[Rfam]
RNA sequence: UAAAAGUGGAUGCCAGAACCCACUAAAAAAAACGGGGCGUAUUCCGAAAAGCCUUACAAGUAGGACACAA
Numbered sequence: 001u002a003a004a005a006g007u008g009g010a011u012g013c014c015a016g017a018a019c020c021c022a023c024u025a026a027a028a029a030a031a032a033c034g035g036g037g038c039g040u041a042u043u044c045c046g047a048a049a050a051g052c053c054u055u056a057c058a059a060g061u062a063g064g065a066c067a068c069a070a
Stems, first nucleotide, its partner, number of pairs: 006023004036053003043064002